Record summary
Shown here is a 153-nucleotide sequence from [Clostridium] methylpentosum, a member of the family "glmS glucosamine-6-phosphate activated ribozyme aptamer". The base pairs follow the family's consensus structure, which is taken from published work. The match comes from Rfam's covariance-model search (66 bits).

[Rfam]
RNA sequence: GGGUACAACCAAGCGCCAGGCCCGGAUACAGCUCCGGGUGACGAGGUGGAGAGUGAUCGAACAGAAUCGGCGGAUGCUCUCCCGGUCCCGGCAGGAGGAUCGUCAGAUGGUUCACAAAAGCGCGUUGCGCACAAAAGAGCCACCCCAUCCCGC
Numbered sequence: 001g002g003g004u005a006c007a008a009c010c011a012a013g014c015g016c017c018a019g020g021c022c023c024g025g026a027u028a029c030a031g032c033u034c035c036g037g038g039u040g041a042c043g044a045g046g047u048g049g050a051g052a053g054u055g056a057u058c059g060a061a062c063a064g065a066a067u068c069g070g071c072g073g074a075u076g077c078u079c080u081c082c083c084g085g086u087c088c089c090g091g092c093a094g095g096a097g098g099a100u101c102g103u104c105a106g107a108u109g110g111u112u113c114a115c116a117a118a119a120g121c122g123c124g125u126u127g128c129g130c131a132c133a134a135a136a137g138a139g140c141c142a143c144c145c146c147a148u149c150c151c152g153c
Stems, first nucleotide, its partner, number of pairs: 020039007048082005057070004083102006108142006121129003